[Rfam]
A member of the RNA family "Glycine riboswitch aptamer" from Pseudorhodobacter sp. E13, 102 nucleotides long. The source organism's lineage runs through Bacteria, Pseudomonadati, Rhodobacterales, Paracoccaceae and Pseudorhodobacter. Gene Ontology term of the family: glycine biosynthetic process.
RNA sequence: CCAUCAGGAUCGGGAGAAUCCGGUCGGGGCGCAAGCCCCCCUCUGGUGCCGAAGGAGCAACCGCCCCGGUAAACUCUCAGGCAAAAGGACCGGUUCUGGUAG
Numbered sequence: 001c002c003a004u005c006a007g008g009a010u011c012g013g014g015a016g017a018a019u020c021c022g023g024u025c026g027g028g029g030c031g032c033a034a035g036c037c038c039c040c041c042u043c044u045g046g047u048g049c050c051g052a053a054g055g056a057g058c059a060a061c062c063g064c065c066c067c068g069g070u071a072a073a074c075u076c077u078c079a080g081g082c083a084a085a086a087g088g089a090c091c092g093g094u095u096c097u098g099g100u101a102g
Stems, first nucleotide, its partner, number of pairs: 006097008020046004048082003051078002055076003061069002